[Rfam]
RNA sequence: GGAUAACACUUUUUGCUAUCUUCGGCCAAUAGUGCAAUGACAUGUGGAAUAAUUUUUCCAUAUAUCAUUGCAUUAUUGGUCAGAGAUAGCAAAACACUGCAAUCC
Numbered sequence: 001g002g003a004u005a006a007c008a009c010u011u012u013u014u015g016c017u018a019u020c021u022u023c024g025g026c027c028a029a030u031a032g033u034g035c036a037a038u039g040a041c042a043u044g045u046g047g048a049a050u051a052a053u054u055u056u057u058c059c060a061u062a063u064a065u066c067a068u069u070g071c072a073u074u075a076u077u078g079g080u081c082a083g084a085g086a087u088a089g090c091a092a093a094a095c096a097c098u099g100c101a102a103u104c105c
Base pairs, nucleotide, nucleotide: 001105002104003103004102011094012093013092014091015090016089017088018087019086021084022083024081025080026079027078028077029076030075031074032073033072034071035070036069037068038067039066040065042063043062044061045060046059047058048057049056
Rfam assigns this 105-nucleotide RNA sequence from Prunus armeniaca to the family "MIR6274 microRNA precursor family". The source organism's lineage runs through Eukaryota, Streptophyta, Spermatophyta, Magnoliopsida and Prunus. The family has 2 seed sequences and 342 matches in Rfam 15.1.